[Rfam]
RNA sequence: CAGUGAGGUAGAGGCGCGGUAUUUAACAGUCCAUAGUGGAGUUUGAGAAGGCAAUGAUGCUAUGGAGAAGGAAAUGUCGCCGAAGUGGGUAUUAUUUCUCAAUAAUGCUUGCUGGGUCUGCAGUGAAUAAUUGCAGGACUGUCUCGGUGAACUCCCAAGUUCACCUGAGUUGUGCUAUCUCAUUC
Number, nucleotide and partner (000 for none) at each position: 001c000002a000003g000004u000005g000006a180007g179008g178009u177010a176011g175012a000013g000014g000015c000016g080017c079018g078019g077020u076021a075022u074023u073024u072025a000026a000027c000028a000029g000030u000031c065032c064033a063034u062035a061036g060037u059038g058039g000040a000041g000042u000043u000044u000045g000046a000047g000048a000049a000050g000051g000052c000053a000054a000055u000056g000057a000058u038059g037060c036061u035062a034063u033064g032065g031066a000067g000068a000069a000070g000071g000072a024073a023074a022075u021076g020077u019078c018079g017080c016081c000082g000083a000084a113085g112086u111087g110088g109089g108090u107091a106092u105093u104094a103095u102096u000097u000098c000099u000100c000101a000102a095103u094104a093105a092106u091107g090108c089109u088110u087111g086112c085113u084114g140115g139116g000117u137118c136119u135120g134121c133122a132123g131124u130125g000126a000127a000128u000129a000130a124131u123132u122133g121134c120135a119136g118137g117138a000139c115140u114141g000142u000143c169144u168145c167146g166147g165148u000149g000150a000151a000152c000153u000154c000155c000156c000157a000158a000159g000160u000161u000162c000163a000164c000165c147166u146167g145168a144169g143170u000171u000172g000173u000174g000175c011176u010177a009178u008179c007180u006181c000182a000183u000184u000185c000
RNA: Lysine riboswitch aptamer